[Rfam]
RNA sequence: GUCAUACUACGGUGUAACAGGGAUAAAGUAAACGAUGAUCCAUACCGGACUCUGCGGUAAAAUAUGUAUAGAAAUGUCAAAUUAAGGUUGAUCUAGAAAACAGUUAUGAGGGUGUUUUCUUUA
Numbered sequence: 001g002u003c004a005u006a007c008u009a010c011g012g013u014g015u016a017a018c019a020g021g022g023a024u025a026a027a028g029u030a031a032a033c034g035a036u037g038a039u040c041c042a043u044a045c046c047g048g049a050c051u052c053u054g055c056g057g058u059a060a061a062a063u064a065u066g067u068a069u070a071g072a073a074a075u076g077u078c079a080a081a082u083u084a085a086g087g088u089u090g091a092u093c094u095a096g097a098a099a100a101c102a103g104u105u106a107u108g109a110g111g112g113u114g115u116u117u118u119c120u121u122u123a
Base pairs, nucleotide, nucleotide: 001039002038003037004036005035010034011033014029015028040047057069058068059067087116089114090113092111093110094109096107